[Rfam]
RNA: Editing element of GABA-3 exon 9
Organism: Xenopus laevis
RNA sequence: AAAGUUGCAUAUGCCACAGCAAUGGACUGGUUUAUGGCAGUGUGCUAUGCCUUU
Dot-bracket structure: (((...((.((.(((((.((.(((((....))))).)).))).)))).)).)))